[Rfam]
A member of the RNA family "c-di-GMP-I riboswitch aptamer" from Clostridium sp. N3C, 88 nucleotides long. The match comes from Rfam's covariance-model search (83 bits). Pairs were carried over by alignment from the consensus structure, which is taken from published work.
RNA sequence: CAAUGUUAAUAGCACACUUAUCGAAAGAUAAGGUCGCAAAGCCAUGGGUCUAAAGGAGUAAUACUCCUAUGAUUGCCAGGUUGCCAAA
Numbered sequence: 001c002a003a004u005g006u007u008a009a010u011a012g013c014a015c016a017c018u019u020a021u022c023g024a025a026a027g028a029u030a031a032g033g034u035c036g037c038a039a040a041g042c043c044a045u046g047g048g049u050c051u052a053a054a055g056g057a058g059u060a061a062u063a064c065u066c067c068u069a070u071g072a073u074u075g076c077c078a079g080g081u082u083g084c085c086a087a088a
Stems, first nucleotide, its partner, number of pairs: 012037002017032006040082004045078003048073003055067004